[Rfam]
RNA sequence: AUUAAAGCCGGGUAUUUGAACCGUAUUGUGCACCCUGCAUUUGCUAAAGCACUAAAAAGGAGAAA
Numbered sequence: 001a002u003u004a005a006a007g008c009c010g011g012g013u014a015u016u017u018g019a020a021c022c023g024u025a026u027u028g029u030g031c032a033c034c035c036u037g038c039a040u041u042u043g044c045u046a047a048a049g050c051a052c053u054a055a056a057a058a059g060g061a062g063a064a065a
Base pairs, nucleotide, nucleotide: 010035011034012033013032026055027054028052029051030050031049037044038043
Annotation: A member of the RNA family "SAM-V (S-adenosyl methionine) riboswitch aptamer", 65 nucleotides long. From the family's description: SAM-V riboswitch is a cis-regulatory element that was recognised in marine bacteria it recognise S-adenosylmethione (SAM). The binding of SAM leads to the association of the triplex third strand in the aptamer of SAM-V riboswitch that stabilizes a short helix and occludes the ribosome binding site. The literature on the family includes a 2009 paper in RNA by Poiata et al., "A variant riboswitch aptamer class for S-adenosylmethionine common in marine bacteria". The base pairs follow the family's consensus structure, which is taken from published work.